[Rfam]
RNA: Archaeal large subunit ribosomal RNA, nucleotides 961 to 1403
Organism: Methanobacterium paludis
RNA sequence: CCUCCCGAAAUGACUCUAAGGUCAGCCUGACUGGAGAUAGGUGGCGAGGUAGAGCACUAAUUGGGUGUUUAGGGGGAGAAAUCCCUCGGCAUCCUGUAAAACUCCGAACUUGUCACCGUCGUAGAAGGUUGGAGUGAGGGGCGCGGGGUAAGCCUGUGUCCCGAAAGAGAAACAACUCAGACUAAGGUUAAGGUCCCGAAAUGCCGGAUUAGUGUAAGGGGGUCUUUGGCCCCAGACAAUGGGAAGGUGGGCUUAGAAGCAGCCACCCUUUAAAGAGUUCGUAACAGAUCACCCAUCGAGGUCAAAGGCACCGAAAAUGGACGGGAUUAAGCCGGCUACCGAUACCUUAGAGCACAUGUAAUUUAUUGUGAUUUCGUAGGGAGGCGUUCUGUUAGGGUGGAAGCUGGGGUGUGAAUUCCAGUGGACCUUUCAGAAAUGUGGAU
Numbered sequence: 001c002c003u004c005c006c007g008a009a010a011u012g013a014c015u016c017u018a019a020g021g022u023c024a025g026c027c028u029g030a031c032u033g034g035a036g037a038u039a040g041g042u043g044g045c046g047a048g049g050u051a052g053a054g055c056a057c058u059a060a061u062u063g064g065g066u067g068u069u070u071a072g073g074g075g076g077a078g079a080a081a082u083c084c085c086u087c088g089g090c091a092u093c094c095u096g097u098a099a100a101a102c103u104c105c106g107a108a109c110u111u112g113u114c115a116c117c118g119u120c121g122u123a124g125a126a127g128g129u130u131g132g133a134g135u136g137a138g139g140g141g142c143g144c145g146g147g148g149u150a151a152g153c154c155u156g157u158g159u160c161c162c163g164a165a166a167g168a169g170a171a172a173c174a175a176c177u178c179a180g181a182c183u184a185a186g187g188u189u190a191a192g193g194u195c196c197c198g199a200a201a202u203g204c205c206g207g208a209u210u211a212g213u214g215u216a217a218g219g220g221g222g223u224c225u226u227u228g229g230c231c232c233c234a235g236a237c238a239a240u241g242g243g244a245a246g247g248u249g250g251g252c253u254u255a256g257a258a259g260c261a262g263c264c265a266c267c268c269u270u271u272a273a274a275g276a277g278u279u280c281g282u283a284a285c286a287g288a289u290c291a292c293c294c295a296u297c298g299a300g301g302u303c304a305a306a307g308g309c310a311c312c313g314a315a316a317a318u319g320g321a322c323g324g325g326a327u328u329a330a331g332c333c334g335g336c337u338a339c340c341g342a343u344a345c346c347u348u349a350g351a352g353c354a355c356a357u358g359u360a361a362u363u364u365a366u367u368g369u370g371a372u373u374u375c376g377u378a379g380g381g382a383g384g385c386g387u388u389c390u391g392u393u394a395g396g397g398u399g400g401a402a403g404c405u406g407g408g409g410u411g412u413g414a415a416u417u418c419c420a421g422u423g424g425a426c427c428u429u430u431c432a433g434a435a436a437u438g439u440g441g442a443u
Stems, first nucleotide, its partner, number of pairs: 001384006011024005026134001027132006036120003040117008052105001053103002060097002063094006072087006138162009167178003182350007192340003201337001203336005218312002222309010239296005245269003250264003270274001275290001279288002351374002353370004385438001387435005394428003403422008